RNA: Ribosomal protein L20 leader
Organism: Fictibacillus arsenicus
RNA sequence: UCAAACAAGCAGAAGCACCCGCUUCUCACCUGAUUCGACGCCUAUAAUUGGCUGUUGAUGGGUAGAUGGAAUUCAGGCAUGUUAUUAGUACAUAGCCGGUUUACGUGUGGGUGAUAUAUGCGCCGACGCUUUUUUUAUUUG
Dot-bracket structure: ..........((((((....)))))).(((......(((((.........)).)))....)))..........................................(((.((((.......)))).))).............